[Rfam]
The family of this 127-nucleotide RNA sequence from Photorhabdus asymbiotica is "EFASI RNA". Rfam's curators put it in the seed alignment. By type it is a small RNA. The base pairs follow the family's consensus structure, which is taken from published work.
RNA sequence: UUGACAAUAUCGAGGCUGGCUUUUGCCAGAGGGGAUAACCUGUUCACACAGGCGGUAGUACAGCGUACUGAAACCGAUGCCCCGCAAUACCUCAACAGCGUUCACUCUGGCGCACAGGUAUCGUUCA
Numbered sequence: 001u002u003g004a005c006a007a008u009a010u011c012g013a014g015g016c017u018g019g020c021u022u023u024u025g026c027c028a029g030a031g032g033g034g035a036u037a038a039c040c041u042g043u044u045c046a047c048a049c050a051g052g053c054g055g056u057a058g059u060a061c062a063g064c065g066u067a068c069u070g071a072a073a074c075c076g077a078u079g080c081c082c083c084g085c086a087a088u089a090c091c092u093c094a095a096c097a098g099c100g101u102u103c104a105c106u107c108u109g110g111c112g113c114a115c116a117g118g119u120a121u122c123g124u125u126c127a
Stems, first nucleotide, its partner, number of pairs: 002127003007121005016029005031083004039052005053076004057069005